[Rfam]
RNA sequence: CUCGCCGAGGGGCGCUGCGACCGCGGGAACUACGCCACGGCCAGGCUCGGCAGGACUUUUUUGUAACGGCGCCCGGUCAAG
Number, nucleotide and partner (000 for none) at each position: 001c000002u053003c000004g051005c050006c049007g048008a047009g000010g000011g000012g000013c000014g000015c000016u000017g000018c000019g000020a000021c040022c039023g038024c000025g036026g035027g000028a000029a000030c000031u000032a000033c000034g000035c026036c025037a000038c023039g022040g021041c000042c000043a000044g000045g000046c000047u008048c007049g006050g005051c004052a000053g002054g000055a000056c000057u000058u000059u000060u000061u000062u000063g000064u000065a000066a000067c000068g000069g000070c000071g000072c000073c000074c000075g000076g000077u000078c000079a000080a000081g000
A member of the RNA family "SAH (S-adenosyl-L-homocysteine) riboswitch aptamer" from Pseudoxanthomonas wuyuanensis, 81 nucleotides long. The organism belongs to Pseudoxanthomonas, within Bacteria. Rfam 15.1 lists 1,354 matches to the family in 1,132 species.